[Rfam]
A member of the RNA family "SL2 RNA" from Mesorhabditis belari, 113 nucleotides long. Rfam classes the family as a non-coding RNA gene. The base pairs follow the family's consensus structure, which is taken from published work. Rfam describes the family as follows. This family represents SL2 RNA. SL2 RNA is involved in trans splicing in lower eukaryotes. Trans-splicing is a form of RNA processing. Gene Ontology term of the family: mRNA trans splicing, via spliceosome.
RNA sequence: GGUUUAUACCCAGUACAACAAGGUACGCUUGGGAAUCCGACCUGGAGUGAAAUCUGGUGUUGGGAACCGAUGAAUUUUUGGAUAAGUCUGUCUGGGGAAUCCGGAAGGACGAA
Number, nucleotide and partner (000 for none) at each position: 001g000002g000003u000004u000005u000006a000007u000008a000009c032010c031011c000012a000013g028014u027015a000016c000017a024018a000019c000020a000021a000022g000023g000024u017025a000026c000027g014028c013029u000030u000031g010032g009033g000034a000035a000036u000037c000038c062039g061040a060041c059042c057043u056044g055045g054046a053047g000048u000049g000050a000051a000052a000053u046054c045055u044056g043057g042058u000059g041060u040061u039062g038063g000064g000065a000066a000067c000068c000069g000070a000071u000072g000073a000074a000075u000076u000077u000078u000079u000080g000081g000082a000083u000084a000085a000086g000087u000088c111089u000090g000091u108092c107093u106094g000095g000096g102097g101098a000099a000100u000101c097102c096103g000104g000105a000106a093107g092108g091109a000110c000111g088112a000113a000